[Rfam]
RNA sequence: AUGGAUCUUCGGGGCAGGUGAAACUCCUGACCGGCGGUAAGUUUUUUAAAACAAGCCCGCGACUCCAUGCUAUAUUAGCUUGGACUGAUCUGGUGAAAUUCCAGAGCCGACGGUUAAAGUCCGGAUGGGAGAAGAUAAGA
Numbered sequence: 001a002u003g004g005a006u007c008u009u010c011g012g013g014g015c016a017g018g019u020g021a022a023a024c025u026c027c028u029g030a031c032c033g034g035c036g037g038u039a040a041g042u043u044u045u046u047u048a049a050a051a052c053a054a055g056c057c058c059g060c061g062a063c064u065c066c067a068u069g070c071u072a073u074a075u076u077a078g079c080u081u082g083g084a085c086u087g088a089u090c091u092g093g094u095g096a097a098a099u100u101c102c103a104g105a106g107c108c109g110a111c112g113g114u115u116a117a118a119g120u121c122c123g124g125a126u127g128g129g130a131g132a133a134g135a136u137a138a139g140a
Stems, first nucleotide, its partner, number of pairs: 005136006016028003030120002032109002034060004055107002064084002089105005111123003